[Rfam]
The family of this 122-nucleotide RNA sequence from Ramlibacter tataouinensis is "Burkholderia RNA 11".
On this family, see Ramos et al., Genomics 2013: "Experimental identification of small non-coding regulatory RNAs in the opportunistic human pathogen Burkholderia cenocepacia J2315".
Nucleotides: 122
Stems, first nucleotide, its partner, number of pairs: 010049003014044002018040002022036003026032001051121005060112003063105001067099002071095002076092002078088001080087002
Number, partner (000 for none) and nucleotide at each position: 001000g002000c003000a004000a005000c006000c007000u008000g009000a010049a011048g012047c013000u014044g015043g016000c017000c018040c019039g020000g021000c022036g023035c024034g025000a026032c027000g028000u029000g030000g031000u032026g033000g034024u035023g036022u037000u038000c039019c040018g041000c042000u043015c044014c045000c046000u047012g048011c049010u050000g051121g052120g053119c054118a055117u056000c057000a058000g059000c060112u061111g062110g063105a064000u065000g066000u067099g068098g069000u070000u071095c072094u073000u074000c075000g076092g077091c078088g079000c080087g081086g082000u083000g084000u085000u086081c087080c088078u089000c090000a091077g092076c093000c094072a095071g096000u097000u098068c099067c100000c101000c102000a103000g104000c105063u106000u107000c108000g109000c110062c111061c112060g113000c114000g115000a116000g117055g118054u119053g120052c121051u122000g
Taxonomically the source falls in Ramlibacter tataouinensis (Bacteria, Pseudomonadati, Burkholderiales, Comamonadaceae). Co-purified with Hfq, expression confirmed by Northern blot. Predicted target marZ. Overlaps coding sequence. Rfam classes the family as a small RNA.